[Rfam]
RNA sequence: UUCACUUUUUAAGCGCCAGAACUUAGUAGAUGACUAUCUAGUUAAGUAAUAUUGGACUAAGUUGACGAGGACAGAGUUAAUCGAAUUAUCGGCGGAUGCUCUGCGGUGAGUUUACCAUCGAAGAACUUUAUUAAAAUACAGGAGUGAUUCUGUACACAAAGUAAAGCUUAAGUAAACUU
Numbered sequence: 001u002u003c004a005c006u007u008u009u010u011a012a013g014c015g016c017c018a019g020a021a022c023u024u025a026g027u028a029g030a031u032g033a034c035u036a037u038c039u040a041g042u043u044a045a046g047u048a049a050u051a052u053u054g055g056a057c058u059a060a061g062u063u064g065a066c067g068a069g070g071a072c073a074g075a076g077u078u079a080a081u082c083g084a085a086u087u088a089u090c091g092g093c094g095g096a097u098g099c100u101c102u103g104c105g106g107u108g109a110g111u112u113u114a115c116c117a118u119c120g121a122a123g124a125a126c127u128u129u130a131u132u133a134a135a136a137u138a139c140a141g142g143a144g145u146g147a148u149u150c151u152g153u154a155c156a157c158a159a160a161g162u163a164a165a166g167c168u169u170a171a172g173u174a175a176a177c178u179u
Base pairs, nucleotide, nucleotide: 020063021062022061023060024059025058026057027056072103073102074101075100076099081092082091083090084089104120105119106118107117108116123169124168126166127165128164129163137154138153139152140151141150142149143148
glmS glucosamine-6-phosphate activated ribozyme aptamer: a 179-nucleotide sequence from Romboutsia maritimum. Pairs were carried over by alignment from the consensus structure, which is taken from published work. For this family Rfam cites "Control of gene expression by a natural metabolite-responsive ribozyme" (Winkler et al., Nature, 2004). By type it is a riboswitch. From the family's description: This entry contains a glucosamine-6-phosphate activated ribozyme that is found in the mRNA for GlmS. GlmS is an enzyme that uses fructose-6-phosphate and glutamine to generate glucosamine-6-phosphate. A search with the family's covariance model found it, with a score of 117 bits. Lineage of the source: Bacteria > Bacillati > Bacillota > Peptostreptococcales > Romboutsia.